RNA sequence: GGCGAUAAAUGGUGCGACGUUUCGAAGCAGCGGACCCGGGGGCGGUACCCGGCGGCUCCACCAAAACUCCUGUCUUCGGGCAGGGGCUCUGAUGGGGCCGAACUAGGAUCGACGUGUUUGCGGGAUGCGUAUUUUUGCCCGGGCUGAGUAACCCGUUAAAGGCUCGAAACCACAAGUGCCAACGACAACGAGGCGCUCGCGAUUGCCGCGUAA
Dot-bracket structure: (((((........(((.........(((.(((...(((((.......)))))(((((((..................................)))))))............)))))).........)))....)))))((((........))))..........................................................